Shown here is a 96-nucleotide RNA from Erinaceus europaeus, a member of the family "Small nucleolar SNORD12/SNORD106".
The source organism's lineage runs through Eukaryota, Bilateria, Chordata, Amniota and Erinaceus.
Rfam classes the family as a C/D-box small nucleolar RNA.
The family's consensus secondary structure was predicted with RNAalifold.
For this family Rfam cites "Identification of 13 novel human modification guide RNAs" (Vitali et al., Nucleic Acids Res, 2003).
Gene Ontology terms of the family: RNA processing and nucleolus.

Nucleotides: 096
Stems, first nucleotide, its partner, number of pairs: 001096001003094007
Number, partner (000 for none) and nucleotide at each position: 001096g002000a003094c004093a005092u006091u007090g008089c009088a010000a011000c012000u013000g014000a015000u016000g017000a018000c019000u020000u021000a022000a023000u024000u025000u026000u027000u028000u029000c030000c031000c032000c033000a034000u035000c036000a037000g038000a039000u040000c041000g042000a043000c044000c045000c046000u047000g048000u049000u050000g051000a052000u053000c054000u055000u056000a057000c058000u059000a060000a061000c062000a063000u064000u065000a066000a067000c068000c069000g070000u071000a072000a073000g074000c075000c076000a077000g078000u079000u080000u081000a082000g083000u084000c085000u086000g087000a088009u089008g090007c091006a092005g093004u094003g095000g096001c